[Rfam]
RNA: Pyrrolysine insertion sequence mttB
RNA sequence: CUUUCUGACUCGAAAGUUCCAGAUGCCCAAGCUGGUUAUGAAAAAGCUUUUACCGCACUCUUAGCGUCCAUGGGAGGGUCCAACUAUAUUCACCACAGCGCAG
Numbered sequence: 001c002u003u004u005c006u007g008a009c010u011c012g013a014a015a016g017u018u019c020c021a022g023a024u025g026c027c028c029a030a031g032c033u034g035g036u037u038a039u040g041a042a043a044a045a046g047c048u049u050u051u052a053c054c055g056c057a058c059u060c061u062u063a064g065c066g067u068c069c070a071u072g073g074g075a076g077g078g079u080c081c082a083a084c085u086a087u088a089u090u091c092a093c094c095a096c097a098g099c100g101c102a103g
Base pairs, nucleotide, nucleotide: 003012025032034061035060077101080098
Dot-bracket structure: ..(........)............(......).((........................))...............(..(.................)..)..